Coronavirus 3' stem-loop II-like motif (s2m): a 43-nucleotide sequence from Gammacoronavirus galli. The family's consensus secondary structure is taken from published work. NCBI's taxonomy places the organism under Viruses, Cornidovirineae, Coronaviridae, Gammacoronavirus galli, Avian coronavirus.

[Rfam]
RNA sequence: CAGUGCCGAGGCCACGCGGAGUACGAUCGAGGGUACAGCACUA
Numbered sequence: 001c002a003g004u005g006c007c008g009a010g011g012c013c014a015c016g017c018g019g020a021g022u023a024c025g026a027u028c029g030a031g032g033g034u035a036c037a038g039c040a041c042u043a
Base pairs, nucleotide, nucleotide: 002042003041004040005039006038011034012033013032015029016028017025018024
Rfam classes the family as a cis-regulatory element.
The family is grouped with related families in Rfam's "Coronavirus 3' UTR".
A reference for the family is Jonassen et al. (1998), "A common RNA motif in the 3' end of the genomes of astroviruses, avian infectious bronchitis virus and an equine rhinovirus", J Gen Virol.
Rfam's curators write: The s2m motif is found in the 3' UTRs of astrovirus, coronavirus and equine rhinovirus genomes. Its function is unknown, but various viral 3' UTR regions have been found to play roles in viral replication and packaging. The seed alignment was expanded in 2020 by Eric Nawrocki.